The family of this 209-nucleotide RNA sequence from Niallia nealsonii is "Bacillus sRNA ncr1575".
RNA sequence: ACUACAAAAAAUGAAAGGGUGACCAUGGGGCGAUGAUCUACUAAUCUUAUUUUAAAAAUACAUUCGAAAAAAAUCGAAGUCAUUUUUGAAUAGGAUUAGUCUAUACUUUCUUAGAAAAAGGUAAUUAUCACCCUAAUGCUGCCCUAGCAUUGGGCCCCUUUUAAGCGGUUUGAAGAAUCCUAUCCGAUUAUGACGGAUAGGAUUCUUUA
Numbered sequence: 001a002c003u004a005c006a007a008a009a010a011a012u013g014a015a016a017g018g019g020u021g022a023c024c025a026u027g028g029g030g031c032g033a034u035g036a037u038c039u040a041c042u043a044a045u046c047u048u049a050u051u052u053u054a055a056a057a058a059u060a061c062a063u064u065c066g067a068a069a070a071a072a073a074u075c076g077a078a079g080u081c082a083u084u085u086u087u088g089a090a091u092a093g094g095a096u097u098a099g100u101c102u103a104u105a106c107u108u109u110c111u112u113a114g115a116a117a118a119a120g121g122u123a124a125u126u127a128u129c130a131c132c133c134u135a136a137u138g139c140u141g142c143c144c145u146a147g148c149a150u151u152g153g154g155c156c157c158c159u160u161u162u163a164a165g166c167g168g169u170u171u172g173a174a175g176a177a178u179c180c181u182a183u184c185c186g187a188u189u190a191u192g193a194c195g196g197a198u199a200g201g202a203u204u205c206u207u208u209a
Stems, first nucleotide, its partner, number of pairs: 016112004025104001029101003042098011054086001063078005120156003176204011
A search with the family's covariance model found it, with a score of 62 bits. It is annotated as a small RNA.